[Rfam]
RNA sequence: AGCAAAAUGAGGUUGCACAAUCUGAAUUAUUUGAUGUUCAUACCAUACAUAUGUUCAUGGUCUUCGAAGUUCUCUGAUUGCU
Dot-bracket structure: (((((........................................................................)))))
A member of the RNA family "Small nucleolar RNA R160" from Digitaria exilis, 82 nucleotides long. snoR160 is a C/D box small nucleolar RNA, which acts as a methylation guide for 25S ribosomal RNA in plants. snoR160 has been alternatively named snoZ270 in rice. NCBI's taxonomy places the organism under Eukaryota, Tracheophyta, Poaceae, Paniceae, Digitaria. Rfam classes the family as a C/D-box small nucleolar RNA. A search with the family's covariance model found it, with a score of 67 bits. The base pairs follow the family's consensus structure. The family has 9 seed sequences and 799 matches in Rfam 15.1.